[Rfam]
RNA sequence: UUACAUGCAUCAACUAUUUACAUCUAUCCUUGUUUACCCAAGCAUGUCACUGGGUAUUUUUCGCCUUAUGAUAGAAAGCAUGAUUCAUACUACCCCCGUAGUAUAAAGAUGGCUUUAGUACUCCCCAUAUAAUGUUUUGUGGGGAGUGCUUUAU
Number, nucleotide and partner (000 for none) at each position: 001u000002u000003a033004c032005a031006u000007g029008c000009a023010u022011c000012a019013a018014c000015u000016a000017u000018u013019u012020a000021c000022a010023u009024c000025u000026a000027u000028c000029c007030u000031u005032g004033u003034u000035u056036a055037c054038c053039c052040a051041a000042g000043c000044a000045u000046g000047u000048c000049a000050c000051u040052g039053g038054g037055u036056a035057u083058u082059u000060u080061u078062c000063g000064c000065c000066u075067u074068a000069u000070g000071a000072u000073a000074g067075a066076a000077a000078g061079c000080a060081u000082g058083a057084u000085u000086c000087a104088u103089a102090c101091u100092a099093c098094c000095c000096c000097c000098g093099u092100a091101g090102u089103a088104u087105a000106a000107a000108g000109a000110u000111g000112g000113c000114u000115u000116u000117a150118g149119u148120a147121c146122u000123c000124c143125c142126c141127a140128u139129a138130u000131a000132a000133u000134g000135u000136u000137u000138u129139g128140u127141g126142g125143g124144g000145a000146g121147u120148g119149c118150u117151u000152u000153a000154u000
Rfam assigns this 154-nucleotide sequence from Staphylococcus phage B_UFSM4 to the family "Small pathogenicity island RNA X". The family's RNA type in Rfam is small RNA. Taxonomically the source falls in Peeveelvirus (Viruses, Duplodnaviria, Heunggongvirae, Caudoviricetes). For this family Rfam cites "A small RNA controls a protein regulator involved in antibiotic resistance in Staphylococcus aureus" (Eyraud et al., Nucleic Acids Res, 2014). The family's consensus secondary structure is taken from published work. SprX was shown to influence antibiotic resistance of the bacteria to Vancomycin and Teicoplanin glycopeptides, which are used to treat MRSA infections.